[Rfam]
RNA sequence: GCGGAUAUGGCGGAAUUGGCAGACGCGCUAGACUUAGGAUCUAGUAUCUUCGAUGUGCAGGUUCAAGUCCUGUUAUCCGCA
Numbered sequence: 001g002c003g004g005a006u007a008u009g010g011c012g013g014a015a016u017u018g019g020c021a022g023a024c025g026c027g028c029u030a031g032a033c034u035u036a037g038g039a040u041c042u043a044g045u046a047u048c049u050u051c052g053a054u055g056u057g058c059a060g061g062u063u064c065a066a067g068u069c070c071u072g073u074u075a076u077c078c079g080c081a
Stems, first nucleotide, its partner, number of pairs: 001080007010026003028044005057073005